[Rfam]
RNA sequence: UAAGAUCAAAGGCACAUUCGCGCGAAAGCCGAAGUCGCAAAGCUACGGGUCUACGUCCCUUUCGGGAUAUGAUAGCCGGGUCGCUCUA
Numbered sequence: 001u002a003a004g005a006u007c008a009a010a011g012g013c014a015c016a017u018u019c020g021c022g023c024g025a026a027a028g029c030c031g032a033a034g035u036c037g038c039a040a041a042g043c044u045a046c047g048g049g050u051c052u053a054c055g056u057c058c059c060u061u062u063c064g065g066g067a068u069a070u071g072a073u074a075g076c077c078g079g080g081u082c083g084c085u086c087u088a
Stems, first nucleotide, its partner, number of pairs: 012038002017033004022029002042081003046078003049073003056067004
RNA: c-di-GMP-I riboswitch aptamer